RNA sequence: UCCAGAGUAGAAAUCGAUGCGUUAAGUGUCCGGCAGACGGGGAGUUGCUGCUGGGACGAAAAGACAAAUCCUGCAAAAGCAGGAUUUGAACUUGCGGUAUCGGUUUCGCAUCCCGCUGAA
Numbered sequence: 001u002c003c004a005g006a007g008u009a010g011a012a013a014u015c016g017a018u019g020c021g022u023u024a025a026g027u028g029u030c031c032g033g034c035a036g037a038c039g040g041g042g043a044g045u046u047g048c049u050g051c052u053g054g055g056a057c058g059a060a061a062a063g064a065c066a067a068a069u070c071c072u073g074c075a076a077a078a079g080c081a082g083g084a085u086u087u088g089a090a091c092u093u094g095c096g097g098u099a100u101c102g103g104u105u106u107c108g109c110a111u112c113c114c115g116c117u118g119a120a
Stems, first nucleotide, its partner, number of pairs: 001120001003118003010107010020096003026057002029055008040113003044109001061093003
The family of this 120-nucleotide RNA sequence from Ruminococcus sp. CAG:403 is "THF (Tetrahydrofolate) riboswitch aptamer".
The match comes from Rfam's covariance-model search (80 bits).
Rfam describes the family as follows. Tetrahydrofolate (THF) riboswitch was first reported for Ames et al. as an RNA motif in 5' untranslated (5'-UTR)regions of folate transport and biosynthesis genes in Firmicutes genomes.
NCBI's taxonomy places the organism under Bacteria, Clostridia, Eubacteriales, Oscillospiraceae, Ruminococcus.
Pairs were carried over by alignment from the consensus structure, which is taken from published work.
Rfam 15.1 lists 747 matches to the family in 747 species.